This 54-nucleotide sequence from Strongylocentrotus purpuratus belongs to the Rfam family "Guanidine-II riboswitch aptamer (mini-ykkC)". Simpler in structure and has fewer highly conserved nucleotide positions than the ykkC-yxkD leader. For this family Rfam cites "Biochemical Validation of a Second Guanidine Riboswitch Class in Bacteria" (Sherlock et al., Biochemistry, 2017). It scores 37 bits against the family's covariance model. Rfam links the family to the GO term regulation of gene expression.
[Rfam]
RNA sequence: GAGGGGGGACGACCCCCCCCCCUAAAAAAAUUGAGGGGGGACGACGUGUCCCCC
Numbered sequence: 001g002a003g004g005g006g007g008g009a010c011g012a013c014c015c016c017c018c019c020c021c022c023u024a025a026a027a028a029a030a031u032u033g034a035g036g037g038g039g040g041a042c043g044a045c046g047u048g049u050c051c052c053c054c
Stems, first nucleotide, its partner, number of pairs: 001020001003018006036054008